Rfam assigns this 123-nucleotide sequence from Salmonella enterica to the family "STnc490 Hfq binding RNA". It is annotated as a small RNA. Rfam's curators put it in the seed alignment. Pairs were carried over by alignment from the consensus structure, which was predicted with WAR.

RNA sequence: AACCCCCAGCCAGGCUGGGGUUCUGGAAAGCUUUCAGCCUUAAGCCAGUUAUUAAAACCCCUUUUGAUUUGUUAAAACAUCUUGCGGUCUGGCAACUGCAAAAGUUCAACAAAAAAUCAAAAG
Numbered sequence: 001a002a003c004c005c006c007c008a009g010c011c012a013g014g015c016u017g018g019g020g021u022u023c024u025g026g027a028a029a030g031c032u033u034u035c036a037g038c039c040u041u042a043a044g045c046c047a048g049u050u051a052u053u054a055a056a057a058c059c060c061c062u063u064u065u066g067a068u069u070u071g072u073u074a075a076a077a078c079a080u081c082u083u084g085c086g087g088u089c090u091g092g093c094a095a096c097u098g099c100a101a102a103a104g105u106u107c108a109a110c111a112a113a114a115a116a117u118c119a120a121a122a123g
Stems, first nucleotide, its partner, number of pairs: 001022002004020007027041002030038003061123009070111004076106003080103001082101007